This 365-nucleotide sequence from Olsenella sp. HMSC062G07 belongs to the Rfam family "transfer-messenger RNA".

RNA sequence: GGGGGUGACUGGUUUCGACAGGGUAUGUCUGAGGUGGGCAGCAGGCCGUGGUCUCCUCGCCACGUUAAACAGGGGUACCGUCAAAUUGAAUUGACGACAACUCGUAUCAGGGCUCUUACGCCCUCGCCGCUUAAUUAGCUAGCGGCCGUCAACCCGGGGGAUGCUCCCGACCCCGGCGCGACGUCAUCUAAGGGAGACGCCCGUGCGGACGUCGUUGGUAUGCCGCACGUCAAGACCGAACCAACUGGGGCGCGGUGCGCGGGUCACGAGGCGCGCCUCGCCUAAGAUGCAACACGUGACUGAGCUUGGAGACACCUGCCAGGGAUGUGCUUUGGACCGGAGUUCGAUUCUCCGCACCUCCACCA
Numbered sequence: 001g002g003g004g005g006u007g008a009c010u011g012g013u014u015u016c017g018a019c020a021g022g023g024u025a026u027g028u029c030u031g032a033g034g035u036g037g038g039c040a041g042c043a044g045g046c047c048g049u050g051g052u053c054u055c056c057u058c059g060c061c062a063c064g065u066u067a068a069a070c071a072g073g074g075g076u077a078c079c080g081u082c083a084a085a086u087u088g089a090a091u092u093g094a095c096g097a098c099a100a101c102u103c104g105u106a107u108c109a110g111g112g113c114u115c116u117u118a119c120g121c122c123c124u125c126g127c128c129g130c131u132u133a134a135u136u137a138g139c140u141a142g143c144g145g146c147c148g149u150c151a152a153c154c155c156g157g158g159g160g161a162u163g164c165u166c167c168c169g170a171c172c173c174c175g176g177c178g179c180g181a182c183g184u185c186a187u188c189u190a191a192g193g194g195a196g197a198c199g200c201c202c203g204u205g206c207g208g209a210c211g212u213c214g215u216u217g218g219u220a221u222g223c224c225g226c227a228c229g230u231c232a233a234g235a236c237c238g239a240a241c242c243a244a245c246u247g248g249g250g251c252g253c254g255g256u257g258c259g260c261g262g263g264u265c266a267c268g269a270g271g272c273g274c275g276c277c278u279c280g281c282c283u284a285a286g287a288u289g290c291a292a293c294a295c296g297u298g299a300c301u302g303a304g305c306u307u308g309g310a311g312a313c314a315c316c317u318g319c320c321a322g323g324g325a326u327g328u329g330c331u332u333u334g335g336a337c338c339g340g341a342g343u344u345c346g347a348u349u350c351u352c353c354g355c356a357c358c359u360c361c362a363c364c365a
Stems, first nucleotide, its partner, number of pairs: 001361007019334012033320006042308005047064005052077001054075004126146005147183004154176006164196005202229007214245005248283005254277007263300004268295001270293001338354005
Description:
Rfam classes the family as a non-coding RNA gene. The base pairs follow the family's consensus structure, which is taken from published work. The match comes from Rfam's covariance-model search (143 bits). Rfam links the family to the GO term RNA catabolic process. Clan: tRNA clan.